RNA sequence: CCGUUCGACGUUGAAGAAGUUGUCUCCUACAUCUGCGAUGGGUCGGAUGUUGAGUCAAAUCCUCUAGAGAAUCCCUAGUCACUAGGGUUGAGCCGAUCUCAAUCUCCAAGCUCUACGCCCAGCUGCUCAGCUUUGAGA
Numbered sequence: 001c002c003g004u005u006c007g008a009c010g011u012u013g014a015a016g017a018a019g020u021u022g023u024c025u026c027c028u029a030c031a032u033c034u035g036c037g038a039u040g041g042g043u044c045g046g047a048u049g050u051u052g053a054g055u056c057a058a059a060u061c062c063u064c065u066a067g068a069g070a071a072u073c074c075c076u077a078g079u080c081a082c083u084a085g086g087g088u089u090g091a092g093c094c095g096a097u098c099u100c101a102a103u104c105u106c107c108a109a110g111c112u113c114u115a116c117g118c119c120c121a122g123c124u125g126c127u128c129a130g131c132u133u134u135g136a137g138a
Base pairs, nucleotide, nucleotide: 004137005136006135007134008133092107095104096103097102
RNA: Small nucleolar RNA Z247